[Rfam]
RNA sequence: GUGCUGUGAUGACUGCCAUCAUGGUUUCACUUAUUUCUGAAUUCCAAUGAUGACAAUCUCUCUUGGCUGUCUGAGCAU
Number, nucleotide and partner (000 for none) at each position: 001g078002u077003g076004c075005u000006g000007u000008g000009a000010u000011g000012a000013c000014u000015g000016c000017c000018a000019u000020c000021a000022u000023g000024g000025u000026u000027u000028c000029a000030c000031u000032u000033a000034u000035u000036u000037c000038u000039g000040a000041a000042u000043u000044c000045c000046a000047a000048u000049g000050a000051u000052g000053a000054c000055a000056a000057u000058c000059u000060c000061u000062c000063u000064u000065g000066g000067c000068u000069g000070u000071c000072u000073g000074a000075g004076c003077a002078u001
Description: Shown here is a 78-nucleotide RNA from Phrynocephalus forsythii, a member of the family "Small nucleolar RNA SNORD53/SNORD92". Lineage of the source: Eukaryota > Chordata > Sauria > Squamata > Phrynocephalus. Gene Ontology terms of the family: nucleolus and RNA processing.